[Rfam]
RNA: mir-449 microRNA precursor family
Organism: Xenopus tropicalis
Nucleotides: 086
Base pairs, nucleotide, nucleotide: 002086003085004084005083008080009079010078011077012076013075016072017071018070019069020068022065023064024063027061028060029059030058031057032056033055034054035053036052
Number, partner (000 for none) and nucleotide at each position: 001000u002086g003085u004084g005083u006000u007000u008080a009079g010078a011077a012076g013075g014000a015000a016072g017071g018070c019069a020068g021000u022065g023064u024063a025000a026000u027061g028060u029059u030058a031057g032056c033055u034054g035053g036052u037000u038000g039000g040000a041000a042000a043000a044000u045000a046000g047000c048000a049000g050000a051000c052036a053035c054034u055033g056032g057031u058030u059029a060028a061027c062000u063024u064023a065022c066000a067000c068020c069019u070018g071017c072016c073000c074000c075013c076012c077011u078010u079009c080008u081000u082000u083005a084004c085003a086002u